[Rfam]
The record is a 109-nucleotide RNA from Necator americanus, which matches "SL2 RNA" in Rfam.
Its Rfam clan is "SL clan".
The family's consensus secondary structure is taken from published work.
Taxonomically the source falls in Necator (Eukaryota, Opisthokonta, Rhabditida, Rhabditomorpha).
This family represents SL2 RNA. SL2 RNA is involved in trans splicing in lower eukaryotes. Trans-splicing is a form of RNA processing. The acquisition of a spliced leader from a SL RNA is a intra-molecular reaction which precisely joins exons derived from separately transcribed RNAs. Approximately 25% of C. elegans genes are organised into polycistronic transcription units and the presence of SL2 on an mRNA is an indication the the gene is in an operon.
The family's RNA type in Rfam is non-coding RNA gene.

RNA sequence: GGUUUAAACCCCAGUAUCUCAAGGUACUAAGGGAGUCCGACCUACCUCUAAGGUUGUGUCGAAACCUCAAUUUUUGGAGCGCCUUCCCGGGGUCAUCCGGGAGGGCAAA
Numbered sequence: 001g002g003u004u005u006a007a008a009c010c011c012c013a014g015u016a017u018c019u020c021a022a023g024g025u026a027c028u029a030a031g032g033g034a035g036u037c038c039g040a041c042c043u044a045c046c047u048c049u050a051a052g053g054u055u056g057u058g059u060c061g062a063a064a065c066c067u068c069a070a071u072u073u074u075u076g077g078a079g080c081g082c083c084u085u086c087c088c089g090g091g092g093u094c095a096u097c098c099g100g101g102a103g104g105g106c107a108a109a
Stems, first nucleotide, its partner, number of pairs: 007036001009032002013028002016025003038061004042056001044054003084107001086105003091098002